Overview
The family of this 407-nucleotide sequence from Paenibacillus sabuli is "Bacterial RNase P class A". Rfam links the family to the GO terms tRNA processing, ribonuclease P activity and dimeric ribonuclease P complex.
[Rfam]
RNA sequence: GAAGUUUGACAGACAAUCGCCGGCAGCGAUCGCGCUGCGGGAGGAAAGUCCGGGCUCCACAGGGCAGGAUGCUGGAUAACGUCCAGUCGGCGCGAGCCGAAGGAUAGUGCCACAGAAACGGACCGCCGAUGGGCCGCCAAGUGCGGCCACAGGCAAGGGUGGAACCGUGGUGUAAGAGACCACGAGCGGUGCUGGUGACAGUACGGCUGGUAAACCCCAUCUGGAGCAAGACCGAGAGGACGCGGCGGCUACGGCCGCAGCUCUGGCACCGGAGCGCGUCCGGGUUGGUCGCUGGAACCGUUCAGCAAUGGGCGGUCUAGACAGAUGAUUGUCGCUUCAUCCGUGGGAGGGUCGUUCCCGCUUGGACCACGCGAAGUACAGAACCCGGCUUACGGCAAACUUCCCGC
Numbered sequence: 001g002a003a004g005u006u007u008g009a010c011a012g013a014c015a016a017u018c019g020c021c022g023g024c025a026g027c028g029a030u031c032g033c034g035c036u037g038c039g040g041g042a043g044g045a046a047a048g049u050c051c052g053g054g055c056u057c058c059a060c061a062g063g064g065c066a067g068g069a070u071g072c073u074g075g076a077u078a079a080c081g082u083c084c085a086g087u088c089g090g091c092g093c094g095a096g097c098c099g100a101a102g103g104a105u106a107g108u109g110c111c112a113c114a115g116a117a118a119c120g121g122a123c124c125g126c127c128g129a130u131g132g133g134c135c136g137c138c139a140a141g142u143g144c145g146g147c148c149a150c151a152g153g154c155a156a157g158g159g160u161g162g163a164a165c166c167g168u169g170g171u172g173u174a175a176g177a178g179a180c181c182a183c184g185a186g187c188g189g190u191g192c193u194g195g196u197g198a199c200a201g202u203a204c205g206g207c208u209g210g211u212a213a214a215c216c217c218c219a220u221c222u223g224g225a226g227c228a229a230g231a232c233c234g235a236g237a238g239g240a241c242g243c244g245g246c247g248g249c250u251a252c253g254g255c256c257g258c259a260g261c262u263c264u265g266g267c268a269c270c271g272g273a274g275c276g277c278g279u280c281c282g283g284g285u286u287g288g289u290c291g292c293u294g295g296a297a298c299c300g301u302u303c304a305g306c307a308a309u310g311g312g313c314g315g316u317c318u319a320g321a322c323a324g325a326u327g328a329u330u331g332u333c334g335c336u337u338c339a340u341c342c343g344u345g346g347g348a349g350g351g352u353c354g355u356u357c358c359c360g361c362u363u364g365g366a367c368c369a370c371g372c373g374a375a376g377u378a379c380a381g382a383a384c385c386c387g388g389c390u391u392a393c394g395g396c397a398a399a400c401u402u403c404c405c406g407c
Base pairs, nucleotide, nucleotide: 001403002402003401004400005399006398007397008396010394012333013332014331015330016329017328018327020041021040023038024037025036026035027034028033046391047390048389050388051387052386053385054384055226056225057224058223062269064267065266067222068221069220070219071218072086073085074084075083076082087101088099089098090097091096102217103216107215108214109211110210111209123158124157125154126153127152130149131148132147166184167183168182169181170180171179186207187205189204190203191202192201193200194199230290231289232288233287238281239280240279241278242277243276260275261274262273263272264271297316298315299314300313301312302311303310304309
The match comes from Rfam's covariance-model search (265 bits).
It is annotated as a ribozyme.